A member of the RNA family "MIR6274 microRNA precursor family" from Prunus persica, 105 nucleotides long. A search with the family's covariance model found it, with a score of 90 bits. The base pairs follow the family's consensus structure, which was predicted with RNAalifold. Taxonomically the source falls in Prunus (Eukaryota, Streptophyta, eudicotyledons, Gunneridae).

RNA sequence: GGAUAACACUUUUUGCUAUCCUCAGCCAAUAAUGCAAUGACACGUAGGAUAACUUUUUUACGUGUCAUUGCAUUAUUGGUCGGGGAUAGCAAAACAGUGCUAUUC
Numbered sequence: 001g002g003a004u005a006a007c008a009c010u011u012u013u014u015g016c017u018a019u020c021c022u023c024a025g026c027c028a029a030u031a032a033u034g035c036a037a038u039g040a041c042a043c044g045u046a047g048g049a050u051a052a053c054u055u056u057u058u059u060a061c062g063u064g065u066c067a068u069u070g071c072a073u074u075a076u077u078g079g080u081c082g083g084g085g086a087u088a089g090c091a092a093a094a095c096a097g098u099g100c101u102a103u104u105c
Stems, first nucleotide, its partner, number of pairs: 002104004011094009021084003025080025